RNA sequence: GUUCGAUAUAAUGAAUUUACUUCUUGUUAAUUUUAUAACAAGAAGCCAUCUCCUUUGUGUUGUUUAUGAAAACAAUCAAUUUUUGCUCAAUUGUAUGAACAAUACCUAACCCAUAUUGUUGAUACUAAUAAGAAUUCAUUUUCCCGAAUGGACCAAGAUGACAUACUCACCUGAUGUUAUCUUGGUUUUU
Numbered sequence: 001g002u003u004c005g006a007u008a009u010a011a012u013g014a015a016u017u018u019a020c021u022u023c024u025u026g027u028u029a030a031u032u033u034u035a036u037a038a039c040a041a042g043a044a045g046c047c048a049u050c051u052c053c054u055u056u057g058u059g060u061u062g063u064u065u066a067u068g069a070a071a072a073c074a075a076u077c078a079a080u081u082u083u084u085g086c087u088c089a090a091u092u093g094u095a096u097g098a099a100c101a102a103u104a105c106c107u108a109a110c111c112c113a114u115a116u117u118g119u120u121g122a123u124a125c126u127a128a129u130a131a132g133a134a135u136u137c138a139u140u141u142u143c144c145c146g147a148a149u150g151g152a153c154c155a156a157g158a159u160g161a162c163a164u165a166c167u168c169a170c171c172u173g174a175u176g177u178u179a180u181c182u183u184g185g186u187u188u189u190u
Base pairs, nucleotide, nucleotide: 018048020045021044022043023042024041025040026039027038028037029036055079056078057077060075061074062073063072064071091127093125094124095123096122098120099119100118102116103115104114153185154184155183156182157181158180159179160178161177162176
The family of this 190-nucleotide RNA sequence from Staphylococcus massiliensis is "RNA Staph. aureus D". Lineage of the source: Bacteria > Bacillota > Bacilli > Staphylococcus > Staphylococcus massiliensis.